[Rfam]
mir-156 microRNA precursor family: a 93-nucleotide RNA from Ensete ventricosum. Rfam 15.1 lists 1,401 matches to the family in 221 species. The match comes from Rfam's covariance-model search (75 bits). This family represents the plant microRNA (miRNA) precursor mir-156.
RNA sequence: UUGACAGAAGAGAGUGAGCACUCAUGGUCUUUUCCUGCAUUCAUCAAUGGUCUAAUGCUAGAAGCUAUGGGUGCUCACUUCUCUCUCUGUCAA
Number, nucleotide and partner (000 for none) at each position: 001u093002u092003g091004a090005c089006a088007g087008a086009a000010g083011a082012g081013a079014g078015u077016g076017a075018g074019c073020a072021c071022u000023c069024a068025u067026g066027g065028u000029c000030u000031u000032u000033u000034c000035c000036u000037g000038c000039a000040u000041u000042c000043a000044u000045c000046a000047a000048u000049g000050g000051u000052c000053u000054a000055a000056u000057g000058c000059u000060a000061g000062a000063a000064g000065c027066u026067a025068u024069g023070g000071g021072u020073g019074c018075u017076c016077a015078c014079u013080u000081c012082u011083c010084u000085c000086u008087c007088u006089g005090u004091c003092a002093a001